[Rfam]
RNA sequence: AUUGGCUACGGAGAUCUGUACCCGAAAACAAUGCUAGGCAUGUUAAUUGGAGCUGUCUCGACAGGUAAAGUGAAAGUCAGUAGUUCUAUUCUCUAGCAGCAUUGGUUCUGUUUUUCAGUGGCUGGCGUAUUGAUUAUUGAUUUACCCAUGCCAAUCAUUGUGGAAACAU
Numbered sequence: 001a002u003u004g005g006c007u008a009c010g011g012a013g014a015u016c017u018g019u020a021c022c023c024g025a026a027a028a029c030a031a032u033g034c035u036a037g038g039c040a041u042g043u044u045a046a047u048u049g050g051a052g053c054u055g056u057c058u059c060g061a062c063a064g065g066u067a068a069a070g071u072g073a074a075a076g077u078c079a080g081u082a083g084u085u086c087u088a089u090u091c092u093c094u095a096g097c098a099g100c101a102u103u104g105g106u107u108c109u110g111u112u113u114u115u116c117a118g119u120g121g122c123u124g125g126c127g128u129a130u131u132g133a134u135u136a137u138u139g140a141u142u143u144a145c146c147c148a149u150g151c152c153a154a155u156c157a158u159u160g161u162g163g164a165a166a167c168a169u
Stems, first nucleotide, its partner, number of pairs: 001169002007162005013156003018151003037131002040128001050116002
Background:
The family of this 169-nucleotide sequence from Adineta ricciae is "Potassium channel RNA editing signal". About the family: This family represents a group of sequences related to the human potassium channel Kv1.1 hairpin element which directs the efficient modification of an adenosine to inosine by an adenosine deaminase acting on RNA (ADAR). The ADAR modification causes an isoleucine/valine recoding event which lies in the ion-conducting pore of the potassium channel. Rfam links the family to the GO term adenosine to inosine editing.